[Rfam]
RNA sequence: AUGGAUCUUCGGGGUAAGGUGAAAUUCCUGACCGGCGGUGAUGAUCAUCGGAUCGAUGAUUUAGCCCGCGACUCUCCGUUCCCUAAGGGACGGGGACUGACCUGGUGCGACUCCAGGGCCGACGGUAAAGUCCGGAUGGGAGAAGAUCAAU
Numbered sequence: 001a002u003g004g005a006u007c008u009u010c011g012g013g014g015u016a017a018g019g020u021g022a023a024a025u026u027c028c029u030g031a032c033c034g035g036c037g038g039u040g041a042u043g044a045u046c047a048u049c050g051g052a053u054c055g056a057u058g059a060u061u062u063a064g065c066c067c068g069c070g071a072c073u074c075u076c077c078g079u080u081c082c083c084u085a086a087g088g089g090a091c092g093g094g095g096a097c098u099g100a101c102c103u104g105g106u107g108c109g110a111c112u113c114c115a116g117g118g119c120c121g122a123c124g125g126u127a128a129a130g131u132c133c134g135g136a137u138g139g140g141a142g143a144a145g146a147u148c149a150a151u
Stems, first nucleotide, its partner, number of pairs: 004148007017029003031131002033121002035069004064119002073096004101117005123134003

Shown here is a 151-nucleotide RNA from Paenibacillus faecis, a member of the family "FMN riboswitch aptamer (RFN element)". The source organism's lineage runs through Bacteria, Bacilli, Caryophanales, Paenibacillaceae and Paenibacillus.